Rfam assigns this 65-nucleotide RNA sequence from Drosophila yakuba to the family "tRNA". The base pairs follow the family's consensus structure, which is taken from published work. NCBI's taxonomy places the organism under Eukaryota, Eumetazoa, Pancrustacea, Acalyptratae, Sophophora.
RNA sequence: AAUGAAUUGCCUGAUAAAAAGGGUUACCUUGAUAGGGUAAAUUAUGCAGUUUUCUGCAUUCAUUG
Number, nucleotide and partner (000 for none) at each position: 001a064002a063003u062004g061005a060006a059007u058008u000009g000010c022011c021012u020013g000014a000015u000016a000017a000018a000019a000020a012021g011022g010023g000024u040025u039026a038027c037028c036029u000030u000031g000032a000033u000034a000035g000036g028037g027038u026039a025040a024041a000042u000043u000044a000045u000046g057047c056048a055049g054050u000051u000052u000053u000054c049055u048056g047057c046058a007059u006060u005061c004062a003063u002064u001065g000